Rfam assigns this 51-nucleotide RNA sequence to the family "algC RNA".
[Rfam]
RNA sequence: AUGAAUAAGGCCCAUUUGGGUCAGGGCUGACUGCUGCCUGAAAAAGGGUAA
Numbered sequence: 001a002u003g004a005a006u007a008a009g010g011c012c013c014a015u016u017u018g019g020g021u022c023a024g025g026g027c028u029g030a031c032u033g034c035u036g037c038c039u040g041a042a043a044a045a046g047g048g049u050a051a
Stems, first nucleotide, its partner, number of pairs: 009022005

The family's RNA type in Rfam is cis-regulatory element. The base pairs follow the family's consensus structure, which is taken from published work.